A member of the RNA family "msiK RNA" from Arthrobacter sp. NamB2, 61 nucleotides long.
Taxonomically the source falls in Arthrobacter (Bacteria, Bacillati, Actinomycetota, Actinomycetes).
The family's consensus secondary structure is taken from published work.
The family's RNA type in Rfam is cis-regulatory element.
RNA sequence: AAUACUCUUCCAUUCACUACGGAUCGUCGGGCACGUACCUGCCCGUGAAAAGGAACCAAAA
Numbered sequence: 001a002a003u004a005c006u007c008u009u010c011c012a013u014u015c016a017c018u019a020c021g022g023a024u025c026g027u028c029g030g031g032c033a034c035g036u037a038c039c040u041g042c043c044c045g046u047g048a049a050a051a052g053g054a055a056c057c058a059a060a061a
Stems, first nucleotide, its partner, number of pairs: 010052001013049004028045006